mir-9243 microRNA precursor family: an 87-nucleotide sequence from Cnephaeus nilssonii. Gene Ontology terms of the family: RISC complex and miRNA-mediated post-transcriptional gene silencing. Pairs were carried over by alignment from the consensus structure, which was predicted with RNAalifold.

Nucleotides: 087
Stems, first nucleotide, its partner, number of pairs: 001085002004082008013074001015072001017070019
Number, partner (000 for none) and nucleotide at each position: 001085c002084c003000a004082u005081g006080c007079a008078c009077g010076a011075a012000u013074u014000c015072c016000a017070u018069g019068c020067a021066c022065c023064g024063g025062g026061c027060c028059u029058c030057u031056a032055g033054u034053g035052u036000g037000u038000g039000u040000g041000u042000a043000u044000a045000u046000a047000u048000a049000u050000a051000c052035a053034c054033a055032c056031u057030a058029g059028a060027g061026g062025c063024c064023u065022g066021g067020u068019g069018c070017a071000u072015g073000a074013a075011u076010u077009c078008g079007u080006g081005c082004a083000u084002g085001g086000g087000u